Eukaryotic large subunit ribosomal RNA: a 476-nucleotide part of an RNA from Dendroctonus ponderosae. Taxonomically the source falls in Dendroctonus (Eukaryota, Metazoa, Mandibulata, Pterygota). Rfam links the family to the GO terms ribosome and structural constituent of ribosome.
RNA sequence: UAGACCAAAGUAGUUAAGGGAAGUCGGCAAAUUAGAUCCGUAACUUCGGAAGAAGGAUUGGCUCUGAGAGCUGGGUGUUAAGAGGCGUUUGAUGGAACAAGGAGUUAGAACAGGUUUUACGGGAUUUCUCGUGGAAUCAGUUCAGGCAUCUUGCUCACAGCUUACGCAUCCUUCUCACAUUAAACAGCUAUCUCAGAACUGGAGCGGACAAGAGGAAUCCGACUGUUUAAUUAAAACAAAGCAUUGCGAUGGCCUUGAUUGGCGUUGACGUAAUGUGAUUUCUGCCCAGUGCUCUGAAUGUCAAUGUGGUGAAAUUCAAUUAAGCGCGGGUAAACGGCGGGAGUAACUAUGACUCUCUUAAGGUAGCCAAAUGCCUCGUCAUCUAAUUAGUGACGCGCAUGAAUGGAUUAACGAGAUUCCUACUGUCCCUAACUACUAUCUAGCGAAACCACAGCCAAGGGAACGGGCUUGGAUAA
Dot-bracket structure: ((((....((((((((.(((..............(((((....(....).....)))))((.(((((((((((.(((..(((..((((....((.(.(((((.(((.((((.(((((((((((....))))))))))).)))).))).))))).)..))....))))...)))..)))......)))))..)))))).))(...).......(((((((((..(((.........)))..((((((((...(((......))).....))))))))...(((.(((..((((((.(..(((.....(((......))).....))))))))..)))))((((((.......))))))(...)...............(((((.......)))))..........)))....)).)))))))....))).)))))))).))))............(((((........)))))....